[Rfam]
RNA sequence: AGUUUGUGAAUUAUGUUUCUUAAGAAAAAUCUCUGAACAGAGGAACUCCAUAGUGAUUUAAGUGCAUUACCGAGAGAAGCC
Dot-bracket structure: .((((.(...................................................................).)))).
RNA: Small nucleolar RNA SNORD72
Organism: Alaudala cheleensis